[Rfam]
RNA: TPP riboswitch aptamer (THI element)
Organism: Inhella proteolytica
RNA sequence: GACCCACGCUAGGGGUGCUGGUGGCCUUGCCGCCGGCUGAGACAAACCCUUGGAACCUGAUUGAGGUAAUCCUCGCGCAGGGAAGCGUGGCCAAGGCGCC
Numbered sequence: 001g002a003c004c005c006a007c008g009c010u011a012g013g014g015g016u017g018c019u020g021g022u023g024g025c026c027u028u029g030c031c032g033c034c035g036g037c038u039g040a041g042a043c044a045a046a047c048c049c050u051u052g053g054a055a056c057c058u059g060a061u062u063g064a065g066g067u068a069a070u071c072c073u074c075g076c077g078c079a080g081g082g083a084a085g086c087g088u089g090g091c092c093a094a095g096g097c098g099c100c
Base pairs, nucleotide, nucleotide: 006088007087008086009085010084011050012049013048014047016044017037018036019035020034021033022032023031024030056081057080058079059078062075063074064073065072
Dot-bracket structure: .....(((((((((.(((((((((.....))))))))......)..)))).....((((..((((......))))..))))..)))))............